[Rfam]
RNA sequence: GCCUCUUUAGCUCAGUUGGUUAGAGCACCCGACUCAUAAUCGGUAGGUCCUGUGUUCAAGUCACAGAAGAGGCA
Number, nucleotide and partner (000 for none) at each position: 001g073002c072003c071004u070005c069006u068007u067008u000009a000010g026011c025012u024013c023014a000015g000016u000017u000018g000019g000020u000021u000022a000023g013024a012025g011026c010027a000028c000029c043030c042031g041032a040033c000034u000035c000036a000037u000038a000039a000040u032041c031042g030043g029044u000045a000046g000047g000048u000049c000050c066051u065052g064053u063054g062055u000056u000057c000058a000059a000060g000061u000062c054063a053064c052065a051066g050067a007068a006069g005070a004071g003072g002073c001074a000
Rfam assigns this 74-nucleotide RNA sequence from Thiosulfativibrio zosterae to the family "tRNA". A search with the family's covariance model found it, with a score of 70 bits. The organism belongs to Thiosulfativibrio, within Bacteria. The base pairs follow the family's consensus structure, which is taken from published work. Rfam links the family to the GO term triplet codon-amino acid adaptor activity.